[Rfam]
RNA sequence: CUGGAUAAUUUUUAUCCAGAGUGAUUAACCACUUGCUUACAUAGCGCUCAAUUUCGUCAAAAAAAAGUGUUGUGCUGGCGCAACGUCCGUUUACUUACUACAAGUAAUGAGUAGUAUGUAGACCGGCAAAUACCUCGAGCUCGGGGCA
Numbered sequence: 001c002u003g004g005a006u007a008a009u010u011u012u013u014a015u016c017c018a019g020a021g022u023g024a025u026u027a028a029c030c031a032c033u034u035g036c037u038u039a040c041a042u043a044g045c046g047c048u049c050a051a052u053u054u055c056g057u058c059a060a061a062a063a064a065a066a067g068u069g070u071u072g073u074g075c076u077g078g079c080g081c082a083a084c085g086u087c088c089g090u091u092u093a094c095u096u097a098c099u100a101c102a103a104g105u106a107a108u109g110a111g112u113a114g115u116a117u118g119u120a121g122a123c124c125g126g127c128a129a130a131u132a133c134c135u136c137g138a139g140c141u142c143g144g145g146g147c148a
Base pairs, nucleotide, nucleotide: 042077043076044075045074046073047072050070053067054066085127086126087125089123090122092120093119094118096116097115098114099113100112101111103108131148133146134145135144136143
RNA: Pseudomonas sRNA P14
Organism: Pseudomonas sp. GV071